RNA sequence: UCCCCUCUUUCAGUUAUCACAGUGCUGCUGCUGUCCGUCUUAAAGGUACAGUACUGUGAUAACUGAAGGAUGGCG
Numbered sequence: 001u002c003c004c005c006u007c008u009u010u011c012a013g014u015u016a017u018c019a020c021a022g023u024g025c026u027g028c029u030g031c032u033g034u035c036c037g038u039c040u041u042a043a044a045g046g047u048a049c050a051g052u053a054c055u056g057u058g059a060u061a062a063c064u065g066a067a068g069g070a071u072g073g074c075g
Stems, first nucleotide, its partner, number of pairs: 011065015027049001029048004
Dot-bracket structure: ..........(((((((((((((((.(.((((............))))).)))))))))))))))..........
Notes
A member of the RNA family "mir-101 microRNA precursor family" from Chanos chanos, 75 nucleotides long. Taxonomically the source falls in Chanos (Eukaryota, Vertebrata, Anotophysi, Gonorynchiformes). It scores 91 bits against the family's covariance model.